[Rfam]
RNA: mir-574 microRNA precursor family
RNA sequence: AGGCCCAAAGAGAGGGGCAGGGUCUGAUCUGCAUCCUCUGUGGCAGCUGUUGGUCAGUCACUGCCUCUCUCUUUCUCCCUG
Numbered sequence: 001a002g003g004c005c006c007a008a009a010g011a012g013a014g015g016g017g018c019a020g021g022g023u024c025u026g027a028u029c030u031g032c033a034u035c036c037u038c039u040g041u042g043g044c045a046g047c048u049g050u051u052g053g054u055c056a057g058u059c060a061c062u063g064c065c066u067c068u069c070u071c072u073u074u075c076u077c078c079c080u081g
Stems, first nucleotide, its partner, number of pairs: 008073013022059001024057006032049002035046001
Dot-bracket structure: .......(((((((((((((.(.((((((..((.(..........).))..)))))).).)))))))))))))........